[Rfam]
The record is a 77-nucleotide RNA from Alligator mississippiensis, which matches "Mammalian CPEB3 ribozyme" in Rfam. The base pairs follow the family's consensus structure, which is taken from published work. Rfam describes the family as follows. The mammalian CPEB3 ribozyme is a self cleaving RNA located in the second intron of the CPEB3 gene which belongs to a family of genes regulating messenger RNA polyadenylation. A search with the family's covariance model found it, with a score of 40 bits.

RNA sequence: ACAGCAAGUUCAAGGCCAUAGCAGGAGUGCUCAUGGUGCAGCCCUAUCAGAUUCCAGUGAAAUCUGUGAAUUGUGCC
Dot-bracket structure: .............[[[....(((.(((((.......))).]]]....((((((.......))))))....)).))).